Rfam assigns this 125-nucleotide RNA sequence to the family "Streptomyces RNA 3920". About the family: Identified by deep sequencing of transcriptome at the end of exponential growth phase. Sequencing size consistent with northern blot size. The match comes from Rfam's covariance-model search (89 bits). The family's RNA type in Rfam is small RNA.

RNA sequence: GAUAGGGCUGUGUCGCCAGCGUGAUUGGACACUGACGCUGAGUCAACUAGCCUUGUCUGCGCGGUUCGGAGUGCUGCGAACCGGGGCUGGCAGGGUGCCGAGGGGGGAUACCCUGCCAGCCCGCU
Numbered sequence: 001g002a003u004a005g006g007g008c009u010g011u012g013u014c015g016c017c018a019g020c021g022u023g024a025u026u027g028g029a030c031a032c033u034g035a036c037g038c039u040g041a042g043u044c045a046a047c048u049a050g051c052c053u054u055g056u057c058u059g060c061g062c063g064g065u066u067c068g069g070a071g072u073g074c075u076g077c078g079a080a081c082c083g084g085g086g087c088u089g090g091c092a093g094g095g096u097g098c099c100g101a102g103g104g105g106g107g108a109u110a111c112c113c114u115g116c117c118a119g120c121c122c123g124c125u
Stems, first nucleotide, its partner, number of pairs: 001014004015051002018048001021032003033045004059074004077083002085121013099106001